The record is a 49-nucleotide sequence from Phaeobacter inhibens, which matches "SAM/SAH riboswitch aptamer" in Rfam. NCBI's taxonomy places the organism under Bacteria, Pseudomonadati, Pseudomonadota, Alphaproteobacteria, Phaeobacter inhibens. The family's consensus secondary structure is taken from published work.
[Rfam]
RNA sequence: UUACUGCCACAACGGCUUCCUGGCGUGGCAGGCUAAACCCAACGGAGCA
Numbered sequence: 001u002u003a004c005u006g007c008c009a010c011a012a013c014g015g016c017u018u019c020c021u022g023g024c025g026u027g028g029c030a031g032g033c034u035a036a037a038c039c040c041a042a043c044g045g046a047g048c049a
Stems, first nucleotide, its partner, number of pairs: 004031007013022002015048003019045002
Dot-bracket structure: ...(((((((..(([[[.[[))..)))))))............]]]]].